[Rfam]
RNA: TPP riboswitch aptamer (THI element)
RNA sequence: AUUCACUGGUAGGGGUGCCUUAACAUGACGGGCUGAGAACAUACCCAUAGAAUCUGAUCCGGGUAAUGCCGGCGUAGAGAACUAAUUAAUAAGCAAG
Numbered sequence: 001a002u003u004c005a006c007u008g009g010u011a012g013g014g015g016u017g018c019c020u021u022a023a024c025a026u027g028a029c030g031g032g033c034u035g036a037g038a039a040c041a042u043a044c045c046c047a048u049a050g051a052a053u054c055u056g057a058u059c060c061g062g063g064u065a066a067u068g069c070c071g072g073c074g075u076a077g078a079g080a081a082c083u084a085a086u087u088a089a090u091a092a093g094c095a096a097g
Base pairs, nucleotide, nucleotide: 007084008083009082010081012046013045014044016041017033018032019031020030053078054077055076056075059072060071061070062069